[Rfam]
The record is a 370-nucleotide RNA sequence from an SAR86 cluster bacterium, which matches "Bacterial RNase P class A" in Rfam.
RNA sequence: UGAGUUGGUCGGAUGAUCGCUAGCUGGAAGUUUGCCGUAAGAGCUUACCGCUUAAGAAGGAUGCAACAGUUAGAGGAAAGUCCGGACUUCAUAGAGCAGAGUGCCAGCUAACUGCUGGAGAGUGUGAGCUCAUGGAAAGUACAACAGAAAAUAUACCGCCGCAAGGUAAGGGUGAAAAGGUAAGGUAAGAGCUUACCGCUUAAGAUUAAAGUCUUAAGGCAUUGGAAACCCCACUCGAAGCAAUGCCAAAUAGAGGUCAUAUCAUGUUGCUCGCAUGUGAUCUGGGUAGGCAGCGAGAGCACUUUGGUGACAGAGUGCCAAGAUAGAUGAUCAUCUUGAACAGAAUCCGGCUUAUAGACCAACUCAAAUC
Numbered sequence: 001u002g003a004g005u006u007g008g009u010c011g012g013a014u015g016a017u018c019g020c021u022a023g024c025u026g027g028a029a030g031u032u033u034g035c036c037g038u039a040a041g042a043g044c045u046u047a048c049c050g051c052u053u054a055a056g057a058a059g060g061a062u063g064c065a066a067c068a069g070u071u072a073g074a075g076g077a078a079a080g081u082c083c084g085g086a087c088u089u090c091a092u093a094g095a096g097c098a099g100a101g102u103g104c105c106a107g108c109u110a111a112c113u114g115c116u117g118g119a120g121a122g123u124g125u126g127a128g129c130u131c132a133u134g135g136a137a138a139g140u141a142c143a144a145c146a147g148a149a150a151a152u153a154u155a156c157c158g159c160c161g162c163a164a165g166g167u168a169a170g171g172g173u174g175a176a177a178a179g180g181u182a183a184g185g186u187a188a189g190a191g192c193u194u195a196c197c198g199c200u201u202a203a204g205a206u207u208a209a210a211g212u213c214u215u216a217a218g219g220c221a222u223u224g225g226a227a228a229c230c231c232c233a234c235u236c237g238a239a240g241c242a243a244u245g246c247c248a249a250a251u252a253g254a255g256g257u258c259a260u261a262u263c264a265u266g267u268u269g270c271u272c273g274c275a276u277g278u279g280a281u282c283u284g285g286g287u288a289g290g291c292a293g294c295g296a297g298a299g300c301a302c303u304u305u306g307g308u309g310a311c312a313g314a315g316u317g318c319c320a321a322g323a324u325a326g327a328u329g330a331u332c333a334u335c336u337u338g339a340a341c342a343g344a345a346u347c348c349g350g351c352u353u354a355u356a357g358a359c360c361a362a363c364u365c366a367a368a369u370c
Stems, first nucleotide, its partner, number of pairs: 001366010011355001012335007020073007078353003082350005087240004094272004099236005104118005119133001120131004134231002139229002142224002156171002158167003179197006198220001199218008244292004254283006263277005299318008
On this family, see Frank and Pace, Annu Rev Biochem 1998: "Ribonuclease P: unity and diversity in a tRNA processing ribozyme". It scores 306 bits against the family's covariance model. Pairs were carried over by alignment from the consensus structure, which is taken from published work.